Source information: This 427-nucleotide RNA from Propylenella binzhouense belongs to the Rfam family "Bacterial RNase P class A". Rfam classes the family as a ribozyme. The family's consensus secondary structure is taken from published work.

RNA sequence: CCAGCCGGCCGGACGGCCGCCUCGCCAGAUCUCCGCAAGGAGGGCGGGGAGGAAAGUCCGGGCUCCAUGGAAGAACGGUGCCGGGUAACGCCCGGCGGGGGCGACCCCAGGGAAAGUGCCACAGAAAGCAAACCGCCCCGCCUGCCGAUCGGCACACCAGCGGAUGCGCCGCUCGGCCGGCGGGGUAAGGGUGAAAGGGUGGGGUAAGAGCCCACCGCGUCGCCGGCAACGGGGACGGCACGGUAAACCCCACCGGGAGCAAGACCAAGAAGGGACGGCGCGGGCUUCUGCCCAGGCUGCUUCCGAGCCAGCCGUCCGGGUCGGUCGCGCGAAGCGUCCGGCGACGGGCGCUCCAGAUGAAUGGCCGUCGCGUCGCGGGCUCCGGCCCGCGGCCUUACAGAACCCGGCUUACAGGCCGGCUGGCACU
Numbered sequence: 001c002c003a004g005c006c007g008g009c010c011g012g013a014c015g016g017c018c019g020c021c022u023c024g025c026c027a028g029a030u031c032u033c034c035g036c037a038a039g040g041a042g043g044g045c046g047g048g049g050a051g052g053a054a055a056g057u058c059c060g061g062g063c064u065c066c067a068u069g070g071a072a073g074a075a076c077g078g079u080g081c082c083g084g085g086u087a088a089c090g091c092c093c094g095g096c097g098g099g100g101g102c103g104a105c106c107c108c109a110g111g112g113a114a115a116g117u118g119c120c121a122c123a124g125a126a127a128g129c130a131a132a133c134c135g136c137c138c139c140g141c142c143u144g145c146c147g148a149u150c151g152g153c154a155c156a157c158c159a160g161c162g163g164a165u166g167c168g169c170c171g172c173u174c175g176g177c178c179g180g181c182g183g184g185g186u187a188a189g190g191g192u193g194a195a196a197g198g199g200u201g202g203g204g205u206a207a208g209a210g211c212c213c214a215c216c217g218c219g220u221c222g223c224c225g226g227c228a229a230c231g232g233g234g235a236c237g238g239c240a241c242g243g244u245a246a247a248c249c250c251c252a253c254c255g256g257g258a259g260c261a262a263g264a265c266c267a268a269g270a271a272g273g274g275a276c277g278g279c280g281c282g283g284g285c286u287u288c289u290g291c292c293c294a295g296g297c298u299g300c301u302u303c304c305g306a307g308c309c310a311g312c313c314g315u316c317c318g319g320g321u322c323g324g325u326c327g328c329g330c331g332a333a334g335c336g337u338c339c340g341g342c343g344a345c346g347g348g349c350g351c352u353c354c355a356g357a358u359g360a361a362u363g364g365c366c367g368u369c370g371c372g373u374c375g376c377g378g379g380c381u382c383c384g385g386c387c388c389g390c391g392g393c394c395u396u397a398c399a400g401a402a403c404c405c406g407g408c409u410u411a412c413a414g415g416c417c418g419g420c421u422g423g424c425a426c427u
Stems, first nucleotide, its partner, number of pairs: 001423010011412001012369007020049007054410003058407005063259004073302002076255005081095005096110001097108004111250002116248002118244003133190002135186008198216006217239001218237004223232003263326004273317006295309004333352008